This 76-nucleotide RNA from Sphingobium ummariense belongs to the Rfam family "Makes More Granules Regulator RNA (mmgR)". A search with the family's covariance model found it, with a score of 43 bits. SuhB later renamed mmgR (makes more granules regulator) was a putative non-coding RNA found multiple times in the Agrobacterium tumefaciens genome and related alpha-proteobacteria. Lineage of the source: Bacteria > Alphaproteobacteria > Sphingobiaceae > Sphingobium > Sphingobium ummariense.

[Rfam]
RNA sequence: GGAACGGGCCUUUCAGGCAUCCUCUCCUAAAAACUUCCAAAGCCGUCCACCAGGACGGCUUUUUUUUGUCAACUGU
Numbered sequence: 001g002g003a004a005c006g007g008g009c010c011u012u013u014c015a016g017g018c019a020u021c022c023u024c025u026c027c028u029a030a031a032a033a034c035u036u037c038c039a040a041a042g043c044c045g046u047c048c049a050c051c052a053g054g055a056c057g058g059c060u061u062u063u064u065u066u067u068g069u070c071a072a073c074u075g076u
Stems, first nucleotide, its partner, number of pairs: 008018004040061009